[Rfam]
RNA sequence: UAUCAUGUCACACCGAAUUCCGCAGGUGCGGGAGCGGGGGAACCAUUAAUAUGGGGUGAAUUGCCUGCAAAGCAAGGGGCUAUCUUUCGGUCCUAACCCGCCAGCUAACCUCGCAGGUGUAGAAAGCGAGUUU
Dot-bracket structure: ..........((((...(((((......)))))((((((....((......))(((.....(((.......)))..((((.........))))...))).........)))))).))))..............